[Rfam]
RNA sequence: AAAUGCUAAACGCUGAAUUCGUAAAGAAGCGGGGGAACCACUUUGGGGGUGAAUCCAUCUUUUGAUAAGAUGGUAGGGUUAUCUUUCGACCCGAACCCGUCAGCUAACCUCGUAAGCGUUGAAAGAGGAGGA
Numbered sequence: 001a002a003a004u005g006c007u008a009a010a011c012g013c014u015g016a017a018u019u020c021g022u023a024a025a026g027a028a029g030c031g032g033g034g035g036a037a038c039c040a041c042u043u044u045g046g047g048g049g050u051g052a053a054u055c056c057a058u059c060u061u062u063u064g065a066u067a068a069g070a071u072g073g074u075a076g077g078g079u080u081a082u083c084u085u086u087c088g089a090c091c092c093g094a095a096c097c098c099g100u101c102a103g104c105u106a107a108c109c110u111c112g113u114a115a116g117c118g119u120u121g122a123a124a125g126a127g128g129a130g131g132a
Stems, first nucleotide, its partner, number of pairs: 011118004018028003029113006039046001047098003055073004076092004